Shown here is a 149-nucleotide RNA sequence from Weizmannia acidilactici, a member of the family "c-di-AMP riboswitch aptamer (ydaO/yuaA leader)".
It scores 93 bits against the family's covariance model.
RNA sequence: UUCAUAUGAUCGCUCAAUUACAUGCUUCAUGUAAGCGGGGGAACCAUUCGGUGUUUCGGCACCAGGGGUGAAACCUUUCUUUAGAAAGGUGGGGAGACUCUUUACUCCCUAAUCCGUCAGCUAACCUCGUAAGCGUCUGGAGAGAACUG
Numbered sequence: 001u002u003c004a005u006a007u008g009a010u011c012g013c014u015c016a017a018u019u020a021c022a023u024g025c026u027u028c029a030u031g032u033a034a035g036c037g038g039g040g041g042a043a044c045c046a047u048u049c050g051g052u053g054u055u056u057c058g059g060c061a062c063c064a065g066g067g068g069u070g071a072a073a074c075c076u077u078u079c080u081u082u083a084g085a086a087a088g089g090u091g092g093g094g095a096g097a098c099u100c101u102u103u104a105c106u107c108c109c110u111a112a113u114c115c116g117u118c119a120g121c122u123a124a125c126c127u128c129g130u131a132a133g134c135g136u137c138u139g140g141a142g143a144g145a146a147c148u149g
Base pairs, nucleotide, nucleotide: 011135012134013133014132018034019033020032021031022030023029024028035130036129037128038127039126040125045065066115067114068113074089075088076087077086092109093108094107095106
This family represents a conserved RNA structure found upstream of the ydaO and yuaA genes in Bacillus subtilis and related genes in other bacteria.